This 379-nucleotide RNA from Halobacillus sp. BAB-2008 belongs to the Rfam family "Bacterial RNase P class B". Lineage of the source: Bacteria > Bacillota > Bacilli > Caryophanales > Halobacillus. The family is grouped with related families in Rfam's "RNaseP clan". The family's RNA type in Rfam is ribozyme. About the family: Ribonuclease P (RNase P) is a ubiquitous endoribonuclease, found in archaea, bacteria and eukarya as well as chloroplasts and mitochondria. Its best characterised activity is the generation of mature 5'-ends of tRNAs by cleaving the 5'-leader elements of precursor-tRNAs. The match comes from Rfam's covariance-model search (336 bits). Pairs were carried over by alignment from the consensus structure, which is taken from published work.
RNA sequence: AUACUCGGGUAAUCGCUGCAUGUCCUACAUGCAGAGGAAAGUCCAUGCUCGCACAGGCUGAAAUGUCUGUAGUGUUCGUGCUUGACGAAACCAUAAGUCAAGGUAGUUCUUUUUGAACUAACGGCAGGGAAACUUCCUAAGUCUUCGGAUAAGGAAGGAAUACCUUGAAAGUGCCACAGUGACGGAGCCGUCGUAGAAAUACGCCGGGUGGAACGAGGUAAACCCCGCGAGCGAGCAACCCAAAUAUAGGUAGGGGCACUCUCUGGAAGGAAUCAAACGGAAGGAGAGGUCGUUGUAAGACGGCAGAUAGAUGAUUGCCACCGGAGUACGAGGUUGACCACCGUCUGCAGUACUAUGGAACAGAACAUGGCUUACAGAG
Dot-bracket structure: ...(((((((((((.((((((.......))))))....[[[.[[[[[(((((((((((......)))))).....(((((((((((..........))))))(((((((.....)))))).)((.(((.....((((...(((....)))..))))......))).....(((((............(((.((((....)))).))).........)))..))))))))))))))...(((...........)))...((((((..................))))))((((((....))))))........))))))).(((.(((((....................))))).))).......]]]]]]]].).)))
Numbered sequence: 001a002u003a004c005u006c007g008g009g010u011a012a013u014c015g016c017u018g019c020a021u022g023u024c025c026u027a028c029a030u031g032c033a034g035a036g037g038a039a040a041g042u043c044c045a046u047g048c049u050c051g052c053a054c055a056g057g058c059u060g061a062a063a064u065g066u067c068u069g070u071a072g073u074g075u076u077c078g079u080g081c082u083u084g085a086c087g088a089a090a091c092c093a094u095a096a097g098u099c100a101a102g103g104u105a106g107u108u109c110u111u112u113u114u115g116a117a118c119u120a121a122c123g124g125c126a127g128g129g130a131a132a133c134u135u136c137c138u139a140a141g142u143c144u145u146c147g148g149a150u151a152a153g154g155a156a157g158g159a160a161u162a163c164c165u166u167g168a169a170a171g172u173g174c175c176a177c178a179g180u181g182a183c184g185g186a187g188c189c190g191u192c193g194u195a196g197a198a199a200u201a202c203g204c205c206g207g208g209u210g211g212a213a214c215g216a217g218g219u220a221a222a223c224c225c226c227g228c229g230a231g232c233g234a235g236c237a238a239c240c241c242a243a244a245u246a247u248a249g250g251u252a253g254g255g256g257c258a259c260u261c262u263c264u265g266g267a268a269g270g271a272a273u274c275a276a277a278c279g280g281a282a283g284g285a286g287a288g289g290u291c292g293u294u295g296u297a298a299g300a301c302g303g304c305a306g307a308u309a310g311a312u313g314a315u316u317g318c319c320a321c322c323g324g325a326g327u328a329c330g331a332g333g334u335u336g337a338c339c340a341c342c343g344u345c346u347g348c349a350g351u352a353c354u355a356u357g358g359a360a361c362a363g364a365a366c367a368u369g370g371c372u373u374a375c376a377g378a379g
Stems, first nucleotide, its partner, number of pairs: 004379003007375001008319007016034006039373003043370005048235005053070006076230005081102006103122001104120006123225002126165003134156004141150003171223002173219003188207003192203004239255003259288006289304006321358003325354005